[Rfam]
Source information
mir-290 microRNA precursor family: a 68-nucleotide sequence from Neomonachus schauinslandi. It scores 56 bits against the family's covariance model. The family has 31 seed sequences and 565 matches in Rfam 15.1. Clan: mir-290 clan. Lineage of the source: Eukaryota > Deuterostomia > Boreoeutheria > Caniformia > Neomonachus.
RNA sequence: GUGGCACUCAAAUGUGGAAGCACUCUUCGGAUAACUCAGUGAAAAGUGCUACAACAUUUGGGUGUUAC
Numbered sequence: 001g002u003g004g005c006a007c008u009c010a011a012a013u014g015u016g017g018a019a020g021c022a023c024u025c026u027u028c029g030g031a032u033a034a035c036u037c038a039g040u041g042a043a044a045a046g047u048g049c050u051a052c053a054a055c056a057u058u059u060g061g062g063u064g065u066u067a068c
Stems, first nucleotide, its partner, number of pairs: 004065009014055002017052001019050006026043003
The base pairs follow the family's consensus structure, which was predicted with RNAalifold.